RNA sequence: AAGAUAUUUGUUUCAAUCAAACCUGUUAUGAUUAAAGCAAAUCUCGUCUACCGACUAGGGCGCUCGCUGAGAUAAACUCCGAGUGCCCUAGUUUUUUU
Numbered sequence: 001a002a003g004a005u006a007u008u009u010g011u012u013u014c015a016a017u018c019a020a021a022c023c024u025g026u027u028a029u030g031a032u033u034a035a036a037g038c039a040a041a042u043c044u045c046g047u048c049u050a051c052c053g054a055c056u057a058g059g060g061c062g063c064u065c066g067c068u069g070a071g072a073u074a075a076a077c078u079c080c081g082a083g084u085g086c087c088c089u090a091g092u093u094u095u096u097u098u
Stems, first nucleotide, its partner, number of pairs: 002044002006042008015033005053093014069079003

Rfam assigns this 98-nucleotide RNA sequence from Pseudolactococcus insecticola to the family "23S methyl RNA motif". NCBI's taxonomy places the organism under Bacteria, Bacillota, Bacilli, Lactobacillales, Pseudolactococcus.